[Rfam]
RNA: mir-399 microRNA precursor family
RNA sequence: GGAUGCAUUACUGGACAAUUACUCCUUUGGUAGUGGACUACUUGACUACUACAUGCAUGUAUACUAUAGUGAUAUAUAUAUAUAUAUAUAUAUAUAUUUGUUUGGUUGUAUUAAUCGUACGUCGUCUGUGCUCACUGCCAAAGGAGAUUUGUCCUGCAAUUCAUCA
Numbered sequence: 001g002g003a004u005g006c007a008u009u010a011c012u013g014g015a016c017a018a019u020u021a022c023u024c025c026u027u028u029g030g031u032a033g034u035g036g037a038c039u040a041c042u043u044g045a046c047u048a049c050u051a052c053a054u055g056c057a058u059g060u061a062u063a064c065u066a067u068a069g070u071g072a073u074a075u076a077u078a079u080a081u082a083u084a085u086a087u088a089u090a091u092a093u094a095u096a097u098u099u100g101u102u103u104g105g106u107u108g109u110a111u112u113a114a115u116c117g118u119a120c121g122u123c124g125u126c127u128g129u130g131c132u133c134a135c136u137g138c139c140a141a142a143g144g145a146g147a148u149u150u151g152u153c154c155u156g157c158a159a160u161u162c163a164u165c166a
Stems, first nucleotide, its partner, number of pairs: 005162001007160003011156001013154006022146004028140009